This 60-nucleotide RNA belongs to the Rfam family "Transposase-1 RNA". The sequence is in the family's curated seed alignment. It is annotated as a small RNA.
RNA sequence: UGUUAAUAGAUUGCCUCUGUCAUUACCCACUUAGAGUGGAUAUGGGAAUGCAAUUGAAGA
Numbered sequence: 001u002g003u004u005a006a007u008a009g010a011u012u013g014c015c016u017c018u019g020u021c022a023u024u025a026c027c028c029a030c031u032u033a034g035a036g037u038g039g040a041u042a043u044g045g046g047a048a049u050g051c052a053a054u055u056g057a058a059g060a
Stems, first nucleotide, its partner, number of pairs: 009055006020045004027039003